[Rfam]
RNA sequence: UAUAAAGGGUGACUGCCAGGCUUUCGGUACGAAUGAGGAUUUUCCUGUCGUCAACACAUAUUCCUGUGGGAUAUGGAACCGUUACGGAAUAGGCAAACGACCUAUUCCCUAAUGCAGUUCCCU
Numbered sequence: 001u002a003u004a005a006a007g008g009g010u011g012a013c014u015g016c017c018a019g020g021c022u023u024u025c026g027g028u029a030c031g032a033a034u035g036a037g038g039a040u041u042u043u044c045c046u047g048u049c050g051u052c053a054a055c056a057c058a059u060a061u062u063c064c065u066g067u068g069g070g071a072u073a074u075g076g077a078a079c080c081g082u083u084a085c086g087g088a089a090u091a092g093g094c095a096a097a098c099g100a101c102c103u104a105u106u107c108c109c110u111a112a113u114g115c116a117g118u119u120c121c122c123u
Base pairs, nucleotide, nucleotide: 007123008122009121011119012118013117014116015115016114025081026080027079028078029051030050031049032048035045057075058074059073060072061071062070063069086108087107088106090104091103092102093101
Rfam assigns this 123-nucleotide sequence to the family "DUF3268 RNA".